This 99-nucleotide sequence from Candidatus Enterococcus dunnyi belongs to the Rfam family "TPP riboswitch aptamer (THI element)". Rfam describes the family as follows. Vitamin B(1) in its active form thiamin pyrophosphate (TPP) is an essential coenzyme that is synthesised by coupling of pyrimidine and thiazole moieties in bacteria. The previously detected thiamin-regulatory element, thi box was extended, resulting in a new, highly conserved RNA secondary structure, the THI element, which is widely distributed in eubacteria and also occurs in some archaea. Analysis of operon structures identified a large number of new candidate thiamin-regulated genes, mostly transporters, in various prokaryotic organisms. The THI element is a riboswitch that directly binds to TPP to regulate gene expression through a variety of mechanisms in archaea, bacteria and eukaryotes. through a variety of mechanisms in archaea, bacteria and eukaryotes. A search with the family's covariance model found it, with a score of 65 bits. The source organism's lineage runs through Bacteria, Bacilli, Lactobacillales, Enterococcaceae and Enterococcus.
RNA sequence: CCCAUCACAAAGGGGAGCCUUGGCUGAGAUUGAGUACCUACUCUAAACCCUUCGAACCUGUUCGUUAAUACGAGCGUAGGAAUUGUGAUGGAGUAAAUA
Numbered sequence: 001c002c003c004a005u006c007a008c009a010a011a012g013g014g015g016a017g018c019c020u021u022g023g024c025u026g027a028g029a030u031u032g033a034g035u036a037c038c039u040a041c042u043c044u045a046a047a048c049c050c051u052u053c054g055a056a057c058c059u060g061u062u063c064g065u066u067a068a069u070a071c072g073a074g075c076g077u078a079g080g081a082a083u084u085g086u087g088a089u090g091g092a093g094u095a096a097a098u099a
Stems, first nucleotide, its partner, number of pairs: 006087005011051004017024002032043004057080004061074004